Shown here is a 169-nucleotide RNA sequence from Desulfotruncus arcticus, a member of the family "M-box riboswitch aptamer (ykoK leader)".
Pairs were carried over by alignment from the consensus structure.
M-box riboswitch, also know as ykoK leader is described as a metaloregulatory RNA that sense divalent metals and function as a genetic control element of genes related to divalent metal transport in bacteria. It was first reported upstream of the B.subtilis ykoK gene and genes with related functions in other bacteria.
The source organism's lineage runs through Bacteria, Bacillati, Desulfallaceae, Desulfotruncus and Desulfotruncus arcticus.
RNA sequence: CUAAAUCUUCGUUAGGUGAGGCUACUGUACAGACACAGGCCGCUGCCCGGAAAUGUCGAGAGACAGUAACGGGUUAACAGGUAUUGCCGAAUUAAGGUUUUACUUAACGUGGCUGAGAAAUAAUUUCUCUAGCUGUACAGAGCCAAAGCUUGCACGACUGAAGACGUAA
Numbered sequence: 001c002u003a004a005a006u007c008u009u010c011g012u013u014a015g016g017u018g019a020g021g022c023u024a025c026u027g028u029a030c031a032g033a034c035a036c037a038g039g040c041c042g043c044u045g046c047c048c049g050g051a052a053a054u055g056u057c058g059a060g061a062g063a064c065a066g067u068a069a070c071g072g073g074u075u076a077a078c079a080g081g082u083a084u085u086g087c088c089g090a091a092u093u094a095a096g097g098u099u100u101u102a103c104u105u106a107a108c109g110u111g112g113c114u115g116a117g118a119a120a121u122a123a124u125u126u127c128u129c130u131a132g133c134u135g136u137a138c139a140g141a142g143c144c145a146a147a148g149c150u151u152g153c154a155c156g157a158c159u160g161a162a163g164a165c166g167u168a169a
Base pairs, nucleotide, nucleotide: 006164007163008162009161010160011155012154013095015150016149017148020144021143022142025140026139027138028137029136030135031134032133039113040112041111042110043109045074046073047072048071049070054065055064056063057062080104081103082102083101086098087097088096116128117127